[Rfam]
RNA sequence: AAAAAGGGCUCUGUUAUGAAUGGCACACAUAGGACAACUCAAUUGCUCUUCGUGCAAAAUAAACAUUAAGAGAUUUCAGAAGCAUAAUUUUUUUGGUAGGUGGGCAGCUGGUGAUCAUUGGUCCCAGCACCUUU
Numbered sequence: 001a002a003a004a005a006g007g008g009c010u011c012u013g014u015u016a017u018g019a020a021u022g023g024c025a026c027a028c029a030u031a032g033g034a035c036a037a038c039u040c041a042a043u044u045g046c047u048c049u050u051c052g053u054g055c056a057a058a059a060u061a062a063a064c065a066u067u068a069a070g071a072g073a074u075u076u077c078a079g080a081a082g083c084a085u086a087a088u089u090u091u092u093u094u095g096g097u098a099g100g101u102g103g104g105c106a107g108c109u110g111g112u113g114a115u116c117a118u119u120g121g122u123c124c125c126a127g128c129a130c131c132u133u134u
Stems, first nucleotide, its partner, number of pairs: 008083002010080002012025005026054003031049003035045003057076004102132003107128005113123004